MIR2118 microRNA precursor family: a 166-nucleotide RNA sequence from Cocos nucifera. The family has 7 seed sequences and 2,377 matches in Rfam 15.1. A reference for the family is Johnson et al. (2009), "Clusters and superclusters of phased small RNAs in the developing inflorescence of rice", Genome Res.
RNA sequence: AGAGGGAAGAGGAAGAUCGGGCUCCUAAGAGCAGUGGGAAUGGGAUCAUUGAGGAAGUUCUCUUCCUUCUACUUCCAAAGAAGUUUGGAAGAUGGGCAUGUGGGGGUAUUUCCCGAUGCCUCCCAUUCCUAUUGUUUUUAGGUACUCCUUCCUCUUCCUCAUAACU
Numbered sequence: 001a002g003a004g005g006g007a008a009g010a011g012g013a014a015g016a017u018c019g020g021g022c023u024c025c026u027a028a029g030a031g032c033a034g035u036g037g038g039a040a041u042g043g044g045a046u047c048a049u050u051g052a053g054g055a056a057g058u059u060c061u062c063u064u065c066c067u068u069c070u071a072c073u074u075c076c077a078a079a080g081a082a083g084u085u086u087g088g089a090a091g092a093u094g095g096g097c098a099u100g101u102g103g104g105g106g107u108a109u110u111u112c113c114c115g116a117u118g119c120c121u122c123c124c125a126u127u128c129c130u131a132u133u134g135u136u137u138u139u140a141g142g143u144a145c146u147c148c149u150u151c152c153u154c155u156u157c158c159u160c161a162u163a164a165c166u
Base pairs, nucleotide, nucleotide: 009157010156011155012154013153015151016150019147020146021145024142025141026140027139028138029137030136031135032134033133035131036130037129038128039127040126041125042124043123044122045121047118048117049116051114053113054112055111056110057109058108